[Rfam]
RNA sequence: UAUAUUUGUCCUAAGUCAAACUUAACUAACUUUGACCAAAUUUAUAGAAAAAAUAUAGCAAUAACUAUACUAUCCAACAUAUACACUAUAAACCUAUACUUCAUGGUGGAUUCAAUGAAACAAAUUUGGUAUUGUAAAUGUUAAUAUUUUUUCUAUAAAUUUGGUCAAAGUUUGCCAAGUUUGACUUAGGACAAACUUAA
Numbered sequence: 001u002a003u004a005u006u007u008g009u010c011c012u013a014a015g016u017c018a019a020a021c022u023u024a025a026c027u028a029a030c031u032u033u034g035a036c037c038a039a040a041u042u043u044a045u046a047g048a049a050a051a052a053a054u055a056u057a058g059c060a061a062u063a064a065c066u067a068u069a070c071u072a073u074c075c076a077a078c079a080u081a082u083a084c085a086c087u088a089u090a091a092a093c094c095u096a097u098a099c100u101u102c103a104u105g106g107u108g109g110a111u112u113c114a115a116u117g118a119a120a121c122a123a124a125u126u127u128g129g130u131a132u133u134g135u136a137a138a139u140g141u142u143a144a145u146a147u148u149u150u151u152u153c154u155a156u157a158a159a160u161u162u163g164g165u166c167a168a169a170g171u172u173u174g175c176c177a178a179g180u181u182u183g184a185c186u187u188a189g190g191a192c193a194a195a196c197u198u199a200a
Stems, first nucleotide, its partner, number of pairs: 005195005011189013026174001031169005045155008054146003060142004066136004073129002076126002